[Rfam]
RNA: GA-cis RNA
RNA sequence: AGGAGGAGCCAGCUUUGACGGCGGAAGCCGUCAACUCUAAUGCUGGCGACGACCUGCCGCCGAAGCGGAGCUGAGGGGGCGCUACCAUUG
Numbered sequence: 001a002g003g004a005g006g007a008g009c010c011a012g013c014u015u016u017g018a019c020g021g022c023g024g025a026a027g028c029c030g031u032c033a034a035c036u037c038u039a040a041u042g043c044u045g046g047c048g049a050c051g052a053c054c055u056g057c058c059g060c061c062g063a064a065g066c067g068g069a070g071c072u073g074a075g076g077g078g079g080c081g082c083u084a085c086c087a088u089u090g
Stems, first nucleotide, its partner, number of pairs: 008047006016033006056080003060076002064072002